The family of this 70-nucleotide RNA from Xenorhabdus japonica is "int-alpA RNA". About the family: Acidobacteria (1 example), Planctomycetes (1 example), Proteobacteria.

[Rfam]
Nucleotides: 070
Base pairs, nucleotide, nucleotide: 001054002053003052004051005050006049007048008047011021012020027044028043029042030041031040035070036069037068039066
Number, partner (000 for none) and nucleotide at each position: 001054g002053c003052u004051a005050u006049g007048c008047c009000u010000a011021g012020g013000c014000u015000g016000a017000u018000c019000c020012c021011c022000g023000a024000a025000a026000a027044c028043c029042c030041g031040u032000a033000c034000a035070c036069c037068u038000c039066u040031a041030c042029g043028g044027g045000c046000u047008g048007g049006c050005a051004u052003a053002g054001c055000u056000u057000c058000u059000a060000u061000u062000a063000a064000a065000u066039g067000a068037g069036g070035g
About this RNA: Rfam classes the family as a small RNA.